Record summary
Rfam assigns this 72-nucleotide sequence to the family "tRNA". By type it is a transfer RNA. From the family's description: Transfer RNA (tRNA) molecules are approximately 80 nucleotides in length.
RNA sequence: GGCGACAUGGCCGAGUGGUAAGGCAGAGGACUGCAAAUCCUUUUUUCCCCAGUUCAAAUCCGGGUGUCGCCU
Dot-bracket structure: (((((((..(((.........))).(((((.......))))).....(((.(.......).)))))))))).